[Rfam]
RNA sequence: GUCUCCGUGAGAUAUGUUUGAUUUUCUUGGUCGUUGUGAAUGAUCGACCGAGAAUCGAACAUAUUAUUACGGCGAU
Numbered sequence: 001g002u003c004u005c006c007g008u009g010a011g012a013u014a015u016g017u018u019u020g021a022u023u024u025u026c027u028u029g030g031u032c033g034u035u036g037u038g039a040a041u042g043a044u045c046g047a048c049c050g051a052g053a054a055u056c057g058a059a060c061a062u063a064u065u066a067u068u069a070c071g072g073c074g075a076u
Base pairs, nucleotide, nucleotide: 005072006071007070008069009068011065012064013063014062015061016060017059018058019057020056021055022054023053024052025051029049030048031047032046033045
RNA: mir-190 microRNA precursor family
Organism: Atta colombica